[Rfam]
RNA sequence: UGGGCCCUGAUCCAAAGCCCAUUGAAGUCAAUGGGAGUUUUUCCAUUGACUUCAGUGGGCUUUGGAUCAGGCCCCU
Numbered sequence: 001u002g003g004g005c006c007c008u009g010a011u012c013c014a015a016a017g018c019c020c021a022u023u024g025a026a027g028u029c030a031a032u033g034g035g036a037g038u039u040u041u042u043c044c045a046u047u048g049a050c051u052u053c054a055g056u057g058g059g060c061u062u063u064g065g066a067u068c069a070g071g072c073c074c075c076u
Stems, first nucleotide, its partner, number of pairs: 002075003006071005012065002015062002018059003022054001024053011
Dot-bracket structure: .(((.(((((.((.((.(((.(.(((((((((((........))))))))))))..))).)).)).))))).))).